[Rfam]
Overview:
This 90-nucleotide sequence from Lutibaculum baratangense belongs to the Rfam family "Glycine riboswitch aptamer". It scores 63 bits against the family's covariance model. The pairing is the family consensus, mapped onto this sequence. Taxonomically the source falls in Lutibaculum baratangense (Bacteria, Pseudomonadota, Alphaproteobacteria, Lutibaculum).

RNA sequence: GCCCGACGAACGGGAGAGAGCCGGCAUCGCCGGCCGCCGAAGGAGCAACCGCCCCGGAAACUCUCAGGCAACAGGACCGCUUCGUCGACA
Numbered sequence: 001g002c003c004c005g006a007c008g009a010a011c012g013g014g015a016g017a018g019a020g021c022c023g024g025c026a027u028c029g030c031c032g033g034c035c036g037c038c039g040a041a042g043g044a045g046c047a048a049c050c051g052c053c054c055c056g057g058a059a060a061c062u063c064u065c066a067g068g069c070a071a072c073a074g075g076a077c078c079g080c081u082u083c084g085u086c087g088a089c090a
Stems, first nucleotide, its partner, number of pairs: 006085005011079003020034004036069003039065002043063003049057002
Dot-bracket structure: .....((((((((......((((.......)))).(((((..(((...((.....))...))))).))).......))).))))).....